[Rfam]
RNA sequence: GGUGUGGUUAAUGAUGCACAAUCUUUUUUCCCCAUCUUAUCGACUGUGGUGAAACCAGUUGUAUUUAAGCCAAUAUGUCUGAAACCACAUC
Numbered sequence: 001g002g003u004g005u006g007g008u009u010a011a012u013g014a015u016g017c018a019c020a021a022u023c024u025u026u027u028u029u030c031c032c033c034a035u036c037u038u039a040u041c042g043a044c045u046g047u048g049g050u051g052a053a054a055c056c057a058g059u060u061g062u063a064u065u066u067a068a069g070c071c072a073a074u075a076u077g078u079c080u081g082a083a084a085c086c087a088c089a090u091c
Base pairs, nucleotide, nucleotide: 001091002090003089004088005087006086007085008084009083
This 91-nucleotide RNA sequence from Gymnodraco acuticeps belongs to the Rfam family "Small nucleolar SNORD12/SNORD106". Clan: SNORD12 clan. On this family, see Vitali et al., Nucleic Acids Res 2003: "Identification of 13 novel human modification guide RNAs". The family has 8 seed sequences and 2,264 matches in Rfam 15.1. The match comes from Rfam's covariance-model search (62 bits). Taxonomically the source falls in Gymnodraco (Eukaryota, Opisthokonta, Clupeocephala, Notothenioidei).